[Rfam]
RNA sequence: UACACAAAGCACAUGAUGACAAAACACUGAAACUGACUCUAUGAAGUGCAUUCAAUCCAACACUGAGCUUUGUGCC
Number, nucleotide and partner (000 for none) at each position: 001u000002a000003c074004a073005c072006a071007a070008a069009g068010c067011a000012c000013a000014u000015g000016a000017u000018g000019a000020c000021a000022a000023a000024a000025c000026a000027c000028u000029g000030a000031a000032a000033c000034u000035g000036a000037c000038u000039c000040u000041a000042u000043g000044a000045a000046g000047u000048g000049c000050a000051u000052u000053c000054a000055a000056u000057c000058c000059a000060a000061c000062a000063c000064u000065g000066a000067g010068c009069u008070u007071u006072g005073u004074g003075c000076c000